[Rfam]
RNA sequence: CUGGUCGCGGUGCCUGCCGGGAGGUAGAGCGCCGAACGGGAGCGUCGGCCAUUUUGUGCCUGUUUCCUGUGGGACGCGGCGGUG
Dot-bracket structure: .(.(((((.((..((..((((((((((.(((..(..(((.....)))..)....)))..))))))))))..))))))))).)..

This 84-nucleotide sequence from Erinaceus europaeus belongs to the Rfam family "mir-632 microRNA precursor family". Rfam 15.1 lists 126 matches to the family in 126 species. On this family, see Brameier, BMC Res Notes 2010: "Genome-wide comparative analysis of microRNAs in three non-human primates".